[Rfam]
RNA sequence: CUUCACCGACCCGAGCAGCAGGGGCCGACCCUCCGGCCGGUCCUGGCCAUAGGUGGCGAGAAGCGCCUGGGCCUC
Numbered sequence: 001c002u003u004c005a006c007c008g009a010c011c012c013g014a015g016c017a018g019c020a021g022g023g024g025c026c027g028a029c030c031c032u033c034c035g036g037c038c039g040g041u042c043c044u045g046g047c048c049a050u051a052g053g054u055g056g057c058g059a060g061a062a063g064c065g066c067c068u069g070g071g072c073c074u075c
Base pairs, nucleotide, nucleotide: 015025016024031071032070033069038065039064043060044059047056048055049054
Shown here is a 75-nucleotide RNA sequence from Kitasatospora viridis, a member of the family "ASpks TB sRNA".